[Rfam]
RNA sequence: AAGCUUCACGAAUUCACAGGCCCUAUCUUAUGGUAUGAACUGAGUACACGGUGAUUUAUGGUGCAUAGAGGGCUUACCAUAAAACAGGGCCGUGAAUUCACGAAGCAU
Numbered sequence: 001a002a003g004c005u006u007c008a009c010g011a012a013u014u015c016a017c018a019g020g021c022c023c024u025a026u027c028u029u030a031u032g033g034u035a036u037g038a039a040c041u042g043a044g045u046a047c048a049c050g051g052u053g054a055u056u057u058a059u060g061g062u063g064c065a066u067a068g069a070g071g072g073c074u075u076a077c078c079a080u081a082a083a084a085c086a087g088g089g090c091c092g093u094g095a096a097u098u099c100a101c102g103a104a105g106c107a108u
Stems, first nucleotide, its partner, number of pairs: 003106005010099007019091003024086001026084001028082008037073001040070002045067002049063002